Shown here is a 59-nucleotide RNA, a member of the family "pemK RNA". Rfam classes the family as a cis-regulatory element.

RNA sequence: UUAAUGAUACUUCUGUACGCAGCCACUGGAGUACCCAGGAGGGGGUGAGACGCCCAUGG
Numbered sequence: 001u002u003a004a005u006g007a008u009a010c011u012u013c014u015g016u017a018c019g020c021a022g023c024c025a026c027u028g029g030a031g032u033a034c035c036c037a038g039g040a041g042g043g044g045g046u047g048a049g050a051c052g053c054c055c056a057u058g059g
Base pairs, nucleotide, nucleotide: 012056013022014021015020024041026039027037028036029035043055044054045053